[Rfam]
RNA sequence: UUCUUAUCAAGAGAGGCGGAGGGAUUUGGCCCUGCGAAGCCUCGGCAGCAGAUCCGCAUGUUUGCGGAAACUGUGCUACUUCCAACAAGCGGUGAGCUUGGCAGAUAAGAA
Numbered sequence: 001u002u003c004u005u006a007u008c009a010a011g012a013g014a015g016g017c018g019g020a021g022g023g024a025u026u027u028g029g030c031c032c033u034g035c036g037a038a039g040c041c042u043c044g045g046c047a048g049c050a051g052a053u054c055c056g057c058a059u060g061u062u063u064g065c066g067g068a069a070a071c072u073g074u075g076c077u078a079c080u081u082c083c084a085a086c087a088a089g090c091g092g093u094g095a096g097c098u099u100g101g102c103a104g105a106u107a108a109g110a111a
Stems, first nucleotide, its partner, number of pairs: 001111008013043005021032003026085004044077004049073002053068003081103001086100005
Shown here is a 111-nucleotide RNA sequence from Metabacillus lacus, a member of the family "SAM riboswitch aptamer (S box leader)".